[Rfam]
Description: The family of this 353-nucleotide sequence from Dioszegia hungarica is "Nuclear RNase P". From the family's description: Ribonuclease P (RNase P) is a ubiquitous endoribonuclease, found in archaea, bacteria and eukarya as well as chloroplasts and mitochondria.
RNA sequence: GGUAAGUCCAUCUCUUCCUCUUCGGAUCCGCGCUGACUCUCAGACCCCCUCACACUCUCGAGCGGGCUAAGGUCCUGGAAUUUCAACCCUCACUCAACUGGUCCCAAACGGAUCCUCGAUUAAUUGUCGAGCAGCGUCCGACCAGAAAUGCGGUCUCUACCACCGAUUCCAACCCAGAGAAGCGGCAGCGUGGAGGGUAUGUUGGUAGAUGAUCUUGGCAUGGGCGCGGAGGGUUGCCUCGUGCUUUACGGUCUUUCCGACCGAGUAUCAGAGGCUUCAGUGCAAUUUGGUGACGUCCUAUAGUUGGACCUAUGGUUCAGGGAUAACUCGAUCAGGACUACUCUGGGGCUGCU
Numbered sequence: 001g002g003u004a005a006g007u008c009c010a011u012c013u014c015u016u017c018c019u020c021u022u023c024g025g026a027u028c029c030g031c032g033c034u035g036a037c038u039c040u041c042a043g044a045c046c047c048c049c050u051c052a053c054a055c056u057c058u059c060g061a062g063c064g065g066g067c068u069a070a071g072g073u074c075c076u077g078g079a080a081u082u083u084c085a086a087c088c089c090u091c092a093c094u095c096a097a098c099u100g101g102u103c104c105c106a107a108a109c110g111g112a113u114c115c116u117c118g119a120u121u122a123a124u125u126g127u128c129g130a131g132c133a134g135c136g137u138c139c140g141a142c143c144a145g146a147a148a149u150g151c152g153g154u155c156u157c158u159a160c161c162a163c164c165g166a167u168u169c170c171a172a173c174c175c176a177g178a179g180a181a182g183c184g185g186c187a188g189c190g191u192g193g194a195g196g197g198u199a200u201g202u203u204g205g206u207a208g209a210u211g212a213u214c215u216u217g218g219c220a221u222g223g224g225c226g227c228g229g230a231g232g233g234u235u236g237c238c239u240c241g242u243g244c245u246u247u248a249c250g251g252u253c254u255u256u257c258c259g260a261c262c263g264a265g266u267a268u269c270a271g272a273g274g275c276u277u278c279a280g281u282g283c284a285a286u287u288u289g290g291u292g293a294c295g296u297c298c299u300a301u302a303g304u305u306g307g308a309c310c311u312a313u314g315g316u317u318c319a320g321g322g323a324u325a326a327c328u329c330g331a332u333c334a335g336g337a338c339u340a341c342u343c344u345g346g347g348g349c350u351g352c353u
Stems, first nucleotide, its partner, number of pairs: 003345002009292002011289001021062004035051001074336005086234004100114005115131006132229001134227005152214003295324005
The family's consensus secondary structure is taken from published work. Gene Ontology terms of the family: ribonuclease P complex, ribonuclease P activity and tRNA processing. Lineage of the source: Eukaryota > Basidiomycota > Agaricomycotina > Tremellomycetes > Dioszegia.